This 105-nucleotide RNA from Otus sunia belongs to the Rfam family "mir-223 microRNA precursor family". Rfam 15.1 lists 674 matches to the family in 638 species.
[Rfam]
RNA sequence: GCCGGGAGCUGCAGUGCGGCACUGCGUGUAUUUGACAAGCUGAGUUGGACACUCAGUCUGCAGAGUGUCAGUUUGUCAAAUACCCCAAGUGAGGCACCUGCCAAG
Numbered sequence: 001g002c003c004g005g006g007a008g009c010u011g012c013a014g015u016g017c018g019g020c021a022c023u024g025c026g027u028g029u030a031u032u033u034g035a036c037a038a039g040c041u042g043a044g045u046u047g048g049a050c051a052c053u054c055a056g057u058c059u060g061c062a063g064a065g066u067g068u069c070a071g072u073u074u075g076u077c078a079a080a081u082a083c084c085c086c087a088a089g090u091g092a093g094g095c096a097c098c099u100g101c102c103a104a105g
Base pairs, nucleotide, nucleotide: 020091021090022089023088026085028083029082030081031080032079033078034077035076036075037074038073039072040071041070048069049068050067051066053064054063